[Rfam]
RNA sequence: UCCAUUGCGAGGUGGAAUCUGAAGGAAGCUGGCGGCAAAACUCUGCCCUGAGGAACACGAAUCUCAUCAGGCAUAUCCAAUGGGACAAGACUGCAUAACAAGUCAAAAUCCAAAGAUUACACGGACGUUGGAGUGUAAAUGAGGCAGGGACAUGGAGUGAAAGUGAGUUAUC
Numbered sequence: 001u002c003c004a005u006u007g008c009g010a011g012g013u014g015g016a017a018u019c020u021g022a023a024g025g026a027a028g029c030u031g032g033c034g035g036c037a038a039a040a041c042u043c044u045g046c047c048c049u050g051a052g053g054a055a056c057a058c059g060a061a062u063c064u065c066a067u068c069a070g071g072c073a074u075a076u077c078c079a080a081u082g083g084g085a086c087a088a089g090a091c092u093g094c095a096u097a098a099c100a101a102g103u104c105a106a107a108a109u110c111c112a113a114a115g116a117u118u119a120c121a122c123g124g125a126c127g128u129u130g131g132a133g134u135g136u137a138a139a140u141g142a143g144g145c146a147g148g149g150a151c152a153u154g155g156a157g158u159g160a161a162a163g164u165g166a167g168u169u170a171u172c
Base pairs, nucleotide, nucleotide: 001016002015003014004013005012006011028172030170031169032168035164036163040158041157042156043155044154045153046149047148048147049146050145062144063143064142065141066140071136072135073134076132077131078130079129080128081127082126083111084110085109089104090103091102092101
Rfam assigns this 172-nucleotide RNA from Cecembia lonarensis to the family "Group II catalytic intron D1-D4-3". Gene Ontology term of the family: Group II intron splicing.